Rfam assigns this 266-nucleotide RNA from Yamadazyma tenuis to the family "Small nucleolar RNA snR191". The family is grouped with related families in Rfam's "SNORA74 clan". It is annotated as an H/ACA-box small nucleolar RNA. Rfam links the family to the GO terms RNA processing and nucleolus. Pairs were carried over by alignment from the consensus structure, which was predicted with WAR. On this family, see Badis et al., RNA 2003: "A snoRNA that guides the two most conserved pseudouridine modifications within rRNA confers a growth advantage in yeast". Taxonomically the source falls in Yamadazyma tenuis (Eukaryota, Opisthokonta, Fungi, Debaryomycetaceae).
RNA sequence: CCCCAAAGCAUAAGUCAGGGUGAUUUGCAACUGAUUCUAUUCCGUUACUUUCCCAAAAAAUUGCCUGUUACGUCUUUGGAAUAUUGAUAUUAUUCGUCCGUAGACCCAGGACUUUGUCUUGGUACCUUUUCCGUUUUGGAGUUGGUUUUGUCUACAUCGAGCUGGCAGUUUUUGCUGGCUCACCCCAGGAUAAUUACGGUGACUUCUUGAGUUGAAUCUCCUUUUUCUUUUUCAUGGGAUGAUUCGUAGUAUAGAUACCGACAUUU
Numbered sequence: 001c002c003c004c005a006a007a008g009c010a011u012a013a014g015u016c017a018g019g020g021u022g023a024u025u026u027g028c029a030a031c032u033g034a035u036u037c038u039a040u041u042c043c044g045u046u047a048c049u050u051u052c053c054c055a056a057a058a059a060a061u062u063g064c065c066u067g068u069u070a071c072g073u074c075u076u077u078g079g080a081a082u083a084u085u086g087a088u089a090u091u092a093u094u095c096g097u098c099c100g101u102a103g104a105c106c107c108a109g110g111a112c113u114u115u116g117u118c119u120u121g122g123u124a125c126c127u128u129u130u131c132c133g134u135u136u137u138g139g140a141g142u143u144g145g146u147u148u149u150g151u152c153u154a155c156a157u158c159g160a161g162c163u164g165g166c167a168g169u170u171u172u173u174g175c176u177g178g179c180u181c182a183c184c185c186c187a188g189g190a191u192a193a194u195u196a197c198g199g200u201g202a203c204u205u206c207u208u209g210a211g212u213u214g215a216a217u218c219u220c221c222u223u224u225u226u227c228u229u230u231u232u233c234a235u236g237g238g239a240u241g242a243u244u245c246g247u248a249g250u251a252u253a254g255a256u257a258c259c260g261a262c263a264u265u266u
Stems, first nucleotide, its partner, number of pairs: 003079005018066009029046003033042001090193006100155006107145001161179008197260004203254002213246005219239004